[Rfam]
Nucleotides: 372
Stems, first nucleotide, its partner, number of pairs: 001368010012337007020058002023055006063355003067352005072241004079274004084237005089103005104118001105116004119232002124230002126226002141171002143167003148164002150161004179197006198221001199219005204213003245294004255285006265279005301320008
Number, partner (000 for none) and nucleotide at each position: 001368g002367g003366a004365g005364u006363c007362a008361g009360c010359c011000a012337g013336g014335c015334a016333a017332u018331c019000g020058c021057u022000g023055c024054u025053u026052u027051a028050u029000c030000g031000u032000a033000g034000u035000c036000c037000c038000u039000c040000c041000g042000g043000g044000a045000g046000a047000c048000g049000g050028g051027u052026a053025a054024a055023g056000g057021g058020g059000a060000g061000g062000a063355a064354a065353g066000u067352c068351c069350g070349g071348g072241c073240u074239c075238c076000a077000c078000a079274g080273g081272g082271c083000a084237g085236g086235g087234u088233g089103c090102c091101a092100g093099a094000u095000a096000a097000c098000g099093u100092c101091u102090g103089g104118g105116a106115g107114g108113c109000g110000c111000g112000a113108g114107c115106c116105u117000a118104c119232g120231a121000c122000c123000a124230g125229u126226g127225c128000a129000a130000c131000a132000g133000a134000g135000a136000g137000c138000a139000a140000a141171c142170c143167g144166c145165c146000g147000a148164u149163g150161g151160c152159c153158c154000g155000u156000a157000a158153g159152g160151g161150c162000a163149c164148a165145g166144g167143u168000a169000a170142g171141g172000g173000u174000g175000a176000a177000a178000g179197g180196g181195u182194g183193c184192g185000g186000u187000a188000a189000g190000a191000g192184c193183g194182c195181a196180c197179c198221g199219c200218g201217c202216g203215g204213c205212u206211g207000g208000u209000a210000a211206c212205a213204g214000u215203c216202c217201g218200u219199g220000g221198c222000a223000c224000g225127g226126u227000a228000a229125a230124c231120u232119c233088c234087a235086c236085c237084c238075g239074g240073a241072g242000c243000a244000a245294g246293g247292c248291c249000a250000a251000a252000u253000a254000g255285g256284g257283g258282u259281u260280c261000a262000u263000a264000u265279g266278g267277u268276g269275c270000g271082g272081c273080c274079c275269g276268c277267a278266c279265u280260g281259a282258a283257c284256c285255c286000g287000g288000g289000u290000a291248g292247g293246c294245u295000g296000c297000u298000u299000g300000a301320g302319c303318c304317a305316g306315u307314g308313c309000g310000u311000g312000a313308g314307u315306g316305c317304u318303g319302g320301c321000c322000c323000a324000g325000a326000g327000g328000a329000a330000u331018g332017a333016u334015u335014g336013u337012c338000c339000a340000c341000g342000a343000c344000a345000g346000a347000a348071c349070c350069c351068g352067g353065c354064u355063u356000a357000a358000c359010g360009g361008c362007u363006g364005a365004c366003u367002c368001c369000u370000c371000a372000c